Shown here is a 98-nucleotide RNA sequence from Glycine max, a member of the family "Small nucleolar RNA Z157/R69/R10". On this family, see Chen et al., Nucleic Acids Res 2003: "The high diversity of snoRNAs in plants: identification and comparative study of 120 snoRNA genes from Oryza sativa". Pairs were carried over by alignment from the consensus structure, which was predicted with PFOLD. Taxonomically the source falls in Glycine subgen. Soja (Eukaryota, Viridiplantae, Papilionoideae, Phaseoleae). By type it is a C/D-box small nucleolar RNA. Its Rfam clan is "SNORD52 clan".

RNA sequence: UUGUGUGCUGUGACGAGGCAAUUUCGUGGACUAGAGUUUCUGAUCUGGGAAUUUACUCAGAAGUUGAUUAUCAAACCCUUGGCUGUCUGAGCACACCC
Numbered sequence: 001u002u003g004u005g006u007g008c009u010g011u012g013a014c015g016a017g018g019c020a021a022u023u024u025c026g027u028g029g030a031c032u033a034g035a036g037u038u039u040c041u042g043a044u045c046u047g048g049g050a051a052u053u054u055a056c057u058c059a060g061a062a063g064u065u066g067a068u069u070a071u072c073a074a075a076c077c078c079u080u081g082g083c084u085g086u087c088u089g090a091g092c093a094c095a096c097c098c
Base pairs, nucleotide, nucleotide: 003096004095005094006093007092008091039067040066044062045060046059047058048057049056